[Rfam]
RNA sequence: GGCGAUGGCGAGGGGCGCCGCCCGUGCGGCUGAGAAGCACCCGUCGAACCUGAUCCGGGUCAUGCCGGCGGAGGGAAUGCCAGCAAGAGGGCCG
Numbered sequence: 001g002g003c004g005a006u007g008g009c010g011a012g013g014g015g016c017g018c019c020g021c022c023c024g025u026g027c028g029g030c031u032g033a034g035a036a037g038c039a040c041c042c043g044u045c046g047a048a049c050c051u052g053a054u055c056c057g058g059g060u061c062a063u064g065c066c067g068g069c070g071g072a073g074g075g076a077a078u079g080c081c082a083g084c085a086a087g088a089g090g091g092c093c094g
Stems, first nucleotide, its partner, number of pairs: 006082005012042003016037001017030005049074003055068004